Shown here is a 125-nucleotide RNA from Brassica carinata, a member of the family "MIR9563 microRNA precursor family".
A search with the family's covariance model found it, with a score of 96 bits.
The family has 2 seed sequences and 5,832 matches in Rfam 15.1.
The family's consensus secondary structure was predicted with RNAalifold.

[Rfam]
Nucleotides: 125
Stems, first nucleotide, its partner, number of pairs: 001125009011115003015111005021105011033093007042084006
Number, partner (000 for none) and nucleotide at each position: 001125g002124g003123a004122a005121u006120a007119u008118a009117a010000u011115a012114a013113a014000c015111u016110g017109u018108u019107u020000c021105u022104u023103a024102a025101c026100u027099u028098u029097u030096a031095a032000g033093u034092a035091a036090a037089a038088a039087a040000g041000c042084u043083a044082a045081g046080a047079a048000c049000c050000g051000g052000u053000u054000c055000u056000u057000a058000a059000a060000u061000a062000c063000c064000u065000u066000a067000u068000u069000u070000a071000a072000g073000a074000a075000c076000c077000g078000c079047u080046u081045c082044u083043u084042a085000u086000c087039u088038u089037u090036u091035u092034u093033a094000g095031u096030u097029a098028a099027a100026a101025g102024u103023u104022a105021a106000c107019a108018a109017a110016c111015a112000a113013u114012u115011u116000c117009u118008u119007a120006u121005a122004u123003u124002c125001c